[Rfam]
RNA sequence: GUUCCUGAGAUUGGGUGAGGCUAUCCACUGAAUUUAAACAUAUAAUUAAGUGGAAGAAGAGAAAAUAAAUAUGAUUCCCCUAGUAACGGCGAGCGAAGAGGGAGGAGCCCAAAGUGAAAAUCCGUUGAAUUUGCCAACGGACUUGUGGUCUUGAGCGGCGUUGCCAGUGGUAGCUUGGUGCUAAGUUUCUUGGGACAGGACAUCAGAGAGGGUGACAAUCCCGUACUCGCUCCUAUGUCUAUCCACGUGUCGGUACGCCUGCAUAGAGUCGUGCUUUUUGGGAUUGAAGCGCAAAUUGUGAGGUAGUCUUCUCAUAAGGCUAAAUACGGGUGUGAGACCGAUAGCGAACAAGUACCGUGAGGGAAAGGUGAAAAGAACUUUGAAAAGAGUGUUAAAAGUACCUGAAACUGCUGAAAGGGAAC
Numbered sequence: 001g002u003u004c005c006u007g008a009g010a011u012u013g014g015g016u017g018a019g020g021c022u023a024u025c026c027a028c029u030g031a032a033u034u035u036a037a038a039c040a041u042a043u044a045a046u047u048a049a050g051u052g053g054a055a056g057a058a059g060a061g062a063a064a065a066u067a068a069a070u071a072u073g074a075u076u077c078c079c080c081u082a083g084u085a086a087c088g089g090c091g092a093g094c095g096a097a098g099a100g101g102g103a104g105g106a107g108c109c110c111a112a113a114g115u116g117a118a119a120a121u122c123c124g125u126u127g128a129a130u131u132u133g134c135c136a137a138c139g140g141a142c143u144u145g146u147g148g149u150c151u152u153g154a155g156c157g158g159c160g161u162u163g164c165c166a167g168u169g170g171u172a173g174c175u176u177g178g179u180g181c182u183a184a185g186u187u188u189c190u191u192g193g194g195a196c197a198g199g200a201c202a203u204c205a206g207a208g209a210g211g212g213u214g215a216c217a218a219u220c221c222c223g224u225a226c227u228c229g230c231u232c233c234u235a236u237g238u239c240u241a242u243c244c245a246c247g248u249g250u251c252g253g254u255a256c257g258c259c260u261g262c263a264u265a266g267a268g269u270c271g272u273g274c275u276u277u278u279u280g281g282g283a284u285u286g287a288a289g290c291g292c293a294a295a296u297u298g299u300g301a302g303g304u305a306g307u308c309u310u311c312u313c314a315u316a317a318g319g320c321u322a323a324a325u326a327c328g329g330g331u332g333u334g335a336g337a338c339c340g341a342u343a344g345c346g347a348a349c350a351a352g353u354a355c356c357g358u359g360a361g362g363g364a365a366a367g368g369u370g371a372a373a374a375g376a377a378c379u380u381u382g383a384a385a386a387g388a389g390u391g392u393u394a395a396a397a398g399u400a401c402c403u404g405a406a407a408c409u410g411c412u413g414a415a416a417g418g419g420a421a422c
Stems, first nucleotide, its partner, number of pairs: 024055001025053005035042002065072002076103004087093001106321004113149001115147002118144002121141007155262002157259004162255004167246004172240002175235001177233002180230002185201001187200004204208001211221002271292007298315005355362002378389004
Dot-bracket structure: .......................((((((.....((....))......))))).).........((....))...((((.......(.....)......))))..((((...(.((.((.(((((((.......))))))).)).)).).....((((((.((((.((((.((.(.((.((...(.((((......)))))..(...)..((.......)).......)).)).)...))..)))).....)))))))).))........(((((((........))))))).....(((((........)))))..)))).................................((....))...............((((....)))).................................
The family of this 422-nucleotide part of an RNA from Theileria parva is "Eukaryotic large subunit ribosomal RNA". Its Rfam clan is "LSU clan". Taxonomically the source falls in Theileria (Eukaryota, Apicomplexa, Aconoidasida, Theileriidae). The sequence is in the family's curated seed alignment. Gene Ontology terms of the family: ribosome and structural constituent of ribosome.